[Rfam]
RNA sequence: UAGGUACAAUUAAAUAUGACUCAUAUAAUUUUGGGGAUAUGGCCCAUAAGUUUCUACCGGAUAACCGUAACUUUGUCCGACUAUGAGUGAACGCGGAGCGAGG
Numbered sequence: 001u002a003g004g005u006a007c008a009a010u011u012a013a014a015u016a017u018g019a020c021u022c023a024u025a026u027a028a029u030u031u032u033g034g035g036g037a038u039a040u041g042g043c044c045c046a047u048a049a050g051u052u053u054c055u056a057c058c059g060g061a062u063a064a065c066c067g068u069a070a071c072u073u074u075g076u077c078c079g080a081c082u083a084u085g086a087g088u089g090a091a092c093g094c095g096g097a098g099c100g101a102g103g
Stems, first nucleotide, its partner, number of pairs: 019088007029049002032046004058079007